[Rfam]
RNA: SAM riboswitch aptamer (S box leader)
Organism: Rhizocola hellebori
RNA sequence: AACUCAUCCAGAGGAGCUGAGGGAACGGCCCGUUGAAGCUCCGGCAACCACGCAGACACUGCGGUUCGGUGCCAACUCCGCCCGGGUUCAGAUCCGGAAAGAUGAGAG
Numbered sequence: 001a002a003c004u005c006a007u008c009c010a011g012a013g014g015a016g017c018u019g020a021g022g023g024a025a026c027g028g029c030c031c032g033u034u035g036a037a038g039c040u041c042c043g044g045c046a047a048c049c050a051c052g053c054a055g056a057c058a059c060u061g062c063g064g065u066u067c068g069g070u071g072c073c074a075a076c077u078c079c080g081c082c083c084g085g086g087u088u089c090a091g092a093u094c095c096g097g098a099a100a101g102a103u104g105a106g107a108g
Base pairs, nucleotide, nucleotide: 003106004105005104006103007102008101013042014041015040016039017038021031022030023029026080027079028078043073044072045071046070048069049068050065051063052062053061077100082097083096084095085094086093087092